[Rfam]
RNA sequence: GAAAAAUGAGGAUAUUCUGAUUGCUUCCUAUUAUUACAGUGAAGACCUCAGAUCCAACUCUGAUUUCACUCUUGCU
Numbered sequence: 001g002a003a004a005a006a007u008g009a010g011g012a013u014a015u016u017c018u019g020a021u022u023g024c025u026u027c028c029u030a031u032u033a034u035u036a037c038a039g040u041g042a043a044g045a046c047c048u049c050a051g052a053u054c055c056a057a058c059u060c061u062g063a064u065u066u067c068a069c070u071c072u073u074g075c076u
Stems, first nucleotide, its partner, number of pairs: 001067004
Dot-bracket structure: ((((...........................................................)))).........
The family of this 76-nucleotide RNA from Cuculus canorus is "Small nucleolar RNA SNORD19". Clan: SNORD19 clan. It scores 40 bits against the family's covariance model. Pairs were carried over by alignment from the consensus structure. A reference for the family is Huttenhofer et al. (2001), "RNomics: an experimental approach that identifies 201 candidates for novel, small, non-messenger RNAs in mouse", EMBO J.